[Rfam]
RNA sequence: CCAGUGAAGAUGAUGAAACAUUUCGGAUGUAAACUCACAGACCUGUUCUUAAUGCGCAAACCCAUGUGGAUAUUUCCGUUGCCUUCCUUCUGAUUUCACAA
Numbered sequence: 001c002c003a004g005u006g007a008a009g010a011u012g013a014u015g016a017a018a019c020a021u022u023u024c025g026g027a028u029g030u031a032a033a034c035u036c037a038c039a040g041a042c043c044u045g046u047u048c049u050u051a052a053u054g055c056g057c058a059a060a061c062c063c064a065u066g067u068g069g070a071u072a073u074u075u076c077c078g079u080u081g082c083c084u085u086c087c088u089u090c091u092g093a094u095u096u097c098a099c100a101a
Stems, first nucleotide, its partner, number of pairs: 004099002024078004

Rfam assigns this 101-nucleotide sequence from Exophiala mesophila to the family "Small nucleolar RNA Z13/snr52". Lineage of the source: Eukaryota > Opisthokonta > Fungi > Chaetothyriales > Exophiala. The family's consensus secondary structure was predicted with PFOLD. It is annotated as a C/D-box small nucleolar RNA.